[Rfam]
RNA: L31-Actinobacteria ribosomal protein leader
RNA sequence: GCGGUUCCGGUUCACGUCUCAAGAAAACGCGAGGCGACCCGGCGACC
Numbered sequence: 001g002c003g004g005u006u007c008c009g010g011u012u013c014a015c016g017u018c019u020c021a022a023g024a025a026a027a028c029g030c031g032a033g034g035c036g037a038c039c040c041g042g043c044g045a046c047c
Base pairs, nucleotide, nucleotide: 003047004046005045007042008041009040010039015036016035017034018033019032020031023028
Dot-bracket structure: ..(((.((((....((((((..(....)..))))))..))))..)))